This 75-nucleotide RNA sequence from a Geobacteraceae bacterium belongs to the Rfam family "c-di-GMP-I riboswitch aptamer". The family's consensus secondary structure is taken from published work.
[Rfam]
RNA sequence: UUCCGAUAAUAGCAACUCCGGAGCAAUCCGGGGACGCAGAGCCAGGGGUCCCAAGUGGACAGCCCAGCCGCCGAA
Numbered sequence: 001u002u003c004c005g006a007u008a009a010u011a012g013c014a015a016c017u018c019c020g021g022a023g024c025a026a027u028c029c030g031g032g033g034a035c036g037c038a039g040a041g042c043c044a045g046g047g048g049u050c051c052c053a054a055g056u057g058g059a060c061a062g063c064c065c066a067g068c069c070g071c072c073g074a075a
Stems, first nucleotide, its partner, number of pairs: 012037002017032006041068002045065003048060003